[Rfam]
RNA sequence: UAUAGGGACUUCUGUCGCGGGAAAGAUGGUGCCAAGCGAUAUAUAUAUCGAGCUAGAAGAAGCAUUGCAGAAACAUCUAUAUAUUCUGAUGAUGAUCAUCAAUCACAAUUAAUGGUAAGCUAGCUAGCUAGGCAUCAUCUUUCCUCGACCGAAGCCCCUCAUUUU
Numbered sequence: 001u002a003u004a005g006g007g008a009c010u011u012c013u014g015u016c017g018c019g020g021g022a023a024a025g026a027u028g029g030u031g032c033c034a035a036g037c038g039a040u041a042u043a044u045a046u047a048u049c050g051a052g053c054u055a056g057a058a059g060a061a062g063c064a065u066u067g068c069a070g071a072a073a074c075a076u077c078u079a080u081a082u083a084u085u086c087u088g089a090u091g092a093u094g095a096u097c098a099u100c101a102a103u104c105a106c107a108a109u110u111a112a113u114g115g116u117a118a119g120c121u122a123g124c125u126a127g128c129u130a131g132g133c134a135u136c137a138u139c140u141u142u143c144c145u146c147g148a149c150c151g152a153a154g155c156c157c158c159u160c161a162u163u164u165u
Stems, first nucleotide, its partner, number of pairs: 005157003009154004014149004019145003023141011
A member of the RNA family "MIR5225 microRNA precursor family" from Acer yangbiense, 165 nucleotides long. Rfam links the family to the GO terms miRNA-mediated post-transcriptional gene silencing and RISC complex. The organism belongs to Acer, within Eukaryota. It scores 72 bits against the family's covariance model.